[Rfam]
RNA sequence: GUGGAAGGGGCAUGCAGAGGAGCAGGGAUGAUGGGGGGUUGUACUCUGCUUCUUCCCCUCUCGUUCUCCUGUGCCUGCCUCUUCCAUU
Numbered sequence: 001g002u003g004g005a006a007g008g009g010g011c012a013u014g015c016a017g018a019g020g021a022g023c024a025g026g027g028a029u030g031a032u033g034g035g036g037g038g039u040u041g042u043a044c045u046c047u048g049c050u051u052c053u054u055c056c057c058c059u060c061u062c063g064u065u066c067u068c069c070u071g072u073g074c075c076u077g078c079c080u081c082u083u084c085c086a087u088u
Stems, first nucleotide, its partner, number of pairs: 001087012014074003018070005024065002

The record is an 88-nucleotide RNA from Brachypodium distachyon, which matches "MIR528 microRNA precursor family" in Rfam. The family's consensus secondary structure was predicted with RNAalifold. The family has 7 seed sequences and 41 matches in Rfam 15.1.